[Rfam]
RNA sequence: GAUGAACAACUACAUGCAGUUCAAGAGCAAACACCGUAUUGAACCCGUAUGUUUGAUCAUU
Numbered sequence: 001g002a003u004g005a006a007c008a009a010c011u012a013c014a015u016g017c018a019g020u021u022c023a024a025g026a027g028c029a030a031a032c033a034c035c036g037u038a039u040u041g042a043a044c045c046c047g048u049a050u051g052u053u054u055g056a057u058c059a060u061u
Stems, first nucleotide, its partner, number of pairs: 013051005019044006028036001